[Rfam]
RNA sequence: GCAUCUGAAUCUUUCCCACUCCUUGCGCUAUAGUUCUGGACUGUGGGGACACAUGAUGCAACAGGAAGGCACAGGAAAUCCAGACAAGCUCCCUUUCUCCACAGUGGGACUUGUUUCUACGCCUUUGCAACAUUU
Dot-bracket structure: (((((.......(((((((.((...............))...))))))).....))))).........(((.((.......(((((((.......((........))..)))))))......)).))).......